[Rfam]
RNA sequence: CGAGAGAUUUUUUGUAUUGAUGUUGUGCUUUGAUAAAUGCACUCUUCUGAAAGAGUUCCAGGCAAAAUUAUUUUGUGAAAAUGAGCAGUUCUGUUUCAUCUUUGUAUUUAAAUUUUAAAAUCACAAUAAUCAUUUGCUCACAUCC
Numbered sequence: 001c002g003a004g005a006g007a008u009u010u011u012u013u014g015u016a017u018u019g020a021u022g023u024u025g026u027g028c029u030u031u032g033a034u035a036a037a038u039g040c041a042c043u044c045u046u047c048u049g050a051a052a053g054a055g056u057u058c059c060a061g062g063c064a065a066a067a068u069u070a071u072u073u074u075g076u077g078a079a080a081a082u083g084a085g086c087a088g089u090u091c092u093g094u095u096u097c098a099u100c101u102u103u104g105u106a107u108u109u110a111a112a113u114u115u116u117a118a119a120a121u122c123a124c125a126a127u128a129a130u131c132a133u134u135u136g137c138u139c140a141c142a143u144c145c
Stems, first nucleotide, its partner, number of pairs: 001062001004059001006058002013041005075139001077137001079135006088127003